RNA sequence: UUUUGUGCUGUGACGAUACUUAUGUGGACUAGAGUUUCUGAUAUGGGAAUCUUCAUCCAUAAUUUGAUUACAAACCCUUGGCUGUCUGAGCACAUAU
Numbered sequence: 001u002u003u004u005g006u007g008c009u010g011u012g013a014c015g016a017u018a019c020u021u022a023u024g025u026g027g028a029c030u031a032g033a034g035u036u037u038c039u040g041a042u043a044u045g046g047g048a049a050u051c052u053u054c055a056u057c058c059a060u061a062a063u064u065u066g067a068u069u070a071c072a073a074a075c076c077c078u079u080g081g082c083u084g085u086c087u088g089a090g091c092a093c094a095u096a097u
Stems, first nucleotide, its partner, number of pairs: 002096001004094005037067002042062001043060005

Shown here is a 97-nucleotide RNA from Medicago truncatula, a member of the family "Small nucleolar RNA Z157/R69/R10". It scores 68 bits against the family's covariance model. Gene Ontology terms of the family: RNA processing and nucleolus. The family is grouped with related families in Rfam's "SNORD52 clan". For this family Rfam cites "The high diversity of snoRNAs in plants: identification and comparative study of 120 snoRNA genes from Oryza sativa" (Chen et al., Nucleic Acids Res, 2003). Rfam classes the family as a C/D-box small nucleolar RNA. The base pairs follow the family's consensus structure, which was predicted with PFOLD. Rfam 15.1 lists 836 matches to the family in 232 species.